[Rfam]
Rfam assigns this 66-nucleotide RNA from Agathobaculum faecis to the family "DUF3800-VIII RNA". From the family's description: Bacteroidetes, Cyanobacteria, Firmicutes, Planctomycetes (1 example), Proteobacteria, Tenericutes (1 example).
RNA sequence: ACCGCCCUGCGAUCCCCGAAGCUCUGCGUUCCAUGCGGGGUACUGACGUAGGGGACGCGGGGAUAC
Numbered sequence: 001a002c003c004g005c006c007c008u009g010c011g012a013u014c015c016c017c018g019a020a021g022c023u024c025u026g027c028g029u030u031c032c033a034u035g036c037g038g039g040g041u042a043c044u045g046a047c048g049u050a051g052g053g054g055a056c057g058c059g060g061g062g063a064u065a066c
Stems, first nucleotide, its partner, number of pairs: 005062007014054004021041009
Dot-bracket structure: ....(((((((..((((...(((((((((...))))))))).........)))).)))))))....
The family's consensus secondary structure is taken from published work. The match comes from Rfam's covariance-model search (49 bits).